Rfam assigns this 73-nucleotide RNA sequence from Erinaceus europaeus to the family "Small nucleolar RNA SNORD73". Rfam's curators put it in the seed alignment. Rfam links the family to the GO terms nucleolus and RNA processing. The literature on the family includes a 1998 paper in Gene by Rebane et al., "A novel snoRNA (U73) is encoded within the introns of the human and mouse ribosomal protein S3a genes".
[Rfam]
RNA sequence: AAUGAAUGAUGACAAAAUGUUUCGGUCCCAUAUGAUUGACACUGAUUAUACCGUUACAUUAAUUUCUGACAUU
Numbered sequence: 001a002a003u004g005a006a007u008g009a010u011g012a013c014a015a016a017a018u019g020u021u022u023c024g025g026u027c028c029c030a031u032a033u034g035a036u037u038g039a040c041a042c043u044g045a046u047u048a049u050a051c052c053g054u055u056a057c058a059u060u061a062a063u064u065u066c067u068g069a070c071a072u073u
Stems, first nucleotide, its partner, number of pairs: 001073004